Group II catalytic intron D1-D4-2: a 101-nucleotide RNA sequence from Escherichia coli. It is one of the family's seed sequences. The source organism's lineage runs through Bacteria, Pseudomonadati, Enterobacteriaceae, Escherichia and Escherichia coli. Its family is annotated with Group II intron splicing in the Gene Ontology. Group II introns are found in rRNA, tRNA and mRNA of organelles in fungi, plants and protists, and also in mRNA in bacteria.
RNA sequence: GGUGGCAGGCCCACCGGGAUCUGCUGUCGGAAGUCGGUCCCAAACAACCCCGGCUGCUGUGGUAAAGAGCCAUGGUAGCAGGGAAAGAUCAUCAGAAGUUC
Numbered sequence: 001g002g003u004g005g006c007a008g009g010c011c012c013a014c015c016g017g018g019a020u021c022u023g024c025u026g027u028c029g030g031a032a033g034u035c036g037g038u039c040c041c042a043a044a045c046a047a048c049c050c051c052g053g054c055u056g057c058u059g060u061g062g063u064a065a066a067g068a069g070c071c072a073u074g075g076u077a078g079c080a081g082g083g084a085a086a087g088a089u090c091a092u093c094a095g096a097a098g099u100u101c
Stems, first nucleotide, its partner, number of pairs: 001015005016041006023034003046099001048083003052079001054078001056076003060072004